[Rfam]
RNA sequence: UCGGCCCCGGUUCACGUCUCCGCAGCCCGCGGCGGCGACCCGGCGCC
Numbered sequence: 001u002c003g004g005c006c007c008c009g010g011u012u013c014a015c016g017u018c019u020c021c022g023c024a025g026c027c028c029g030c031g032g033c034g035g036c037g038a039c040c041c042g043g044c045g046c047c
Base pairs, nucleotide, nucleotide: 003047004046005045007043008042009041010040015037016036017035018034020032021031022030023029
RNA: L31-Actinobacteria ribosomal protein leader